Background
The family of this 218-nucleotide RNA sequence from Streptomyces chromofuscus is "Streptomyces RNA 1601". Rfam classes the family as a small RNA. Rfam describes the family as follows. Identified by deep sequencing of transcriptome at the end of exponential growth phase. Appears longer on northern blot than sequencing transcript. Streptomyces specific.
[Rfam]
RNA sequence: AACGACCGGUCGGACACGUAUGCCUCACGGCCCACGAGCCCGACCUACAAGUGGAGGCUUUCGAACUCCCACCUGACCGCCCCUUCGGGCGGCGGGUCACCGGUCAGGCGGCCCCGUCCCCAGUGACGGCGUCCGCCCGAAAGUGCGCCCCGCGGUCACCGCGGCGGUCGCUCCGGUAGUUCGAGGAGCCCCGCCUGUGAUCGUCCGGGGCAUUUUUU
Numbered sequence: 001a002a003c004g005a006c007c008g009g010u011c012g013g014a015c016a017c018g019u020a021u022g023c024c025u026c027a028c029g030g031c032c033c034a035c036g037a038g039c040c041c042g043a044c045c046u047a048c049a050a051g052u053g054g055a056g057g058c059u060u061u062c063g064a065a066c067u068c069c070c071a072c073c074u075g076a077c078c079g080c081c082c083c084u085u086c087g088g089g090c091g092g093c094g095g096g097u098c099a100c101c102g103g104u105c106a107g108g109c110g111g112c113c114c115c116g117u118c119c120c121c122a123g124u125g126a127c128g129g130c131g132u133c134c135g136c137c138c139g140a141a142a143g144u145g146c147g148c149c150c151c152g153c154g155g156u157c158a159c160c161g162c163g164g165c166g167g168u169c170g171c172u173c174c175g176g177u178a179g180u181u182c183g184a185g186g187a188g189c190c191c192c193g194c195c196u197g198u199g200a201u202c203g204u205c206c207g208g209g210g211c212a213u214u215u216u217u218u
Stems, first nucleotide, its partner, number of pairs: 004105006012041002042098005048075002051072004055067002077092006107137005114129005147211006153203003160199003163195005170189005